The family of this 92-nucleotide RNA from Desulfofundulus salinus is "tRNA". Its family is annotated with triplet codon-amino acid adaptor activity in the Gene Ontology. A search with the family's covariance model found it, with a score of 58 bits. The source organism's lineage runs through Bacteria, Bacillota, Eubacteriales, Peptococcaceae and Desulfofundulus. Rfam classes the family as a transfer RNA.
RNA sequence: GGAGAGAUGGCUGAGUGGUUGAAGGCGCUCGCCUGGAGAGCGAGUAGACGGGUACAAAGCCUGUCUCGUGGGUUCGAAUCCCACUCUCUCCG
Numbered sequence: 001g002g003a004g005a006g007a008u009g010g011c012u013g014a015g016u017g018g019u020u021g022a023a024g025g026c027g028c029u030c031g032c033c034u035g036g037a038g039a040g041c042g043a044g045u046a047g048a049c050g051g052g053u054a055c056a057a058a059g060c061c062u063g064u065c066u067c068g069u070g071g072g073u074u075c076g077a078a079u080c081c082c083a084c085u086c087u088c089u090c091c092g
Stems, first nucleotide, its partner, number of pairs: 001091007010026003028044005068084005